[Rfam]
RNA sequence: CUACUGUGCCAUCUGGUGAAUAGCUCGGCUCAGGCGCCGACGAAGGACGUGUCAAGCUGCGAUAAGCCUCAGGGAGCCGCACGAAGGCAAAGAACUGAGGAUCUCCUAAUGGGAAUCCCCACCGCAAUUGCUUCGCGCAAUGGGGAACGCCCCGGAUUGAAACAUCUUAGUAGGGGCAGGAAGAGAAAGCGAAUGCGAUGUCGUUAGUAACCGCGAGUGAACGCGACACAGUCCAAACCGAAGCCUUCGGGCAAUGUGGUGUUCGGACUGACUCCCAUCAGCAGAACGUUUCCGAGAAGUCUCCUGGAACGGAGCGCGAUACAGGGUGACAGCCCCGUAUCGGAAGCAAGUAUGCUGUGCGUCAGCUCCAGAGUAGCGGGGAUUGGAAAUUCCUCGUGAAUUCGGCAGACAUCGUCUGCCAAGACUAAAUACGUCCUGAGACCGAUAGCGAACAAGUAGCGUGAGCGAACGCUGAAAAGCACCCCGAGAAGGGAGGUGCAAUAGGGCUUGAAAUCAGAUGGCGAUCGAGC
Numbered sequence: 001c002u003a004c005u006g007u008g009c010c011a012u013c014u015g016g017u018g019a020a021u022a023g024c025u026c027g028g029c030u031c032a033g034g035c036g037c038c039g040a041c042g043a044a045g046g047a048c049g050u051g052u053c054a055a056g057c058u059g060c061g062a063u064a065a066g067c068c069u070c071a072g073g074g075a076g077c078c079g080c081a082c083g084a085a086g087g088c089a090a091a092g093a094a095c096u097g098a099g100g101a102u103c104u105c106c107u108a109a110u111g112g113g114a115a116u117c118c119c120c121a122c123c124g125c126a127a128u129u130g131c132u133u134c135g136c137g138c139a140a141u142g143g144g145g146a147a148c149g150c151c152c153c154g155g156a157u158u159g160a161a162a163c164a165u166c167u168u169a170g171u172a173g174g175g176g177c178a179g180g181a182a183g184a185g186a187a188a189g190c191g192a193a194u195g196c197g198a199u200g201u202c203g204u205u206a207g208u209a210a211c212c213g214c215g216a217g218u219g220a221a222c223g224c225g226a227c228a229c230a231g232u233c234c235a236a237a238c239c240g241a242a243g244c245c246u247u248c249g250g251g252c253a254a255u256g257u258g259g260u261g262u263u264c265g266g267a268c269u270g271a272c273u274c275c276c277a278u279c280a281g282c283a284g285a286a287c288g289u290u291u292c293c294g295a296g297a298a299g300u301c302u303c304c305u306g307g308a309a310c311g312g313a314g315c316g317c318g319a320u321a322c323a324g325g326g327u328g329a330c331a332g333c334c335c336c337g338u339a340u341c342g343g344a345a346g347c348a349a350g351u352a353u354g355c356u357g358u359g360c361g362u363c364a365g366c367u368c369c370a371g372a373g374u375a376g377c378g379g380g381g382a383u384u385g386g387a388a389a390u391u392c393c394u395c396g397u398g399a400a401u402u403c404g405g406c407a408g409a410c411a412u413c414g415u416c417u418g419c420c421a422a423g424a425c426u427a428a429a430u431a432c433g434u435c436c437u438g439a440g441a442c443c444g445a446u447a448g449c450g451a452a453c454a455a456g457u458a459g460c461g462u463g464a465g466c467g468a469a470c471g472c473u474g475a476a477a478a479g480c481a482c483c484c485c486g487a488g489a490a491g492g493g494a495g496g497u498g499c500a501a502u503a504g505g506g507c508u509u510g511a512a513a514u515c516a517g518a519u520g521g522c523g524a525u526c527g528a529g530c
Stems, first nucleotide, its partner, number of pairs: 007523010022508001023472002027443002029440006035433002044107004048061003067100006076088003111120003127141005148179001149177005159166002189196002200227005210218002230426004238259003269364004279357004293342003299315001301314004318322001324336003376397007404420005459466002
RNA: Archaeal large subunit ribosomal RNA, nucleotides 10 to 539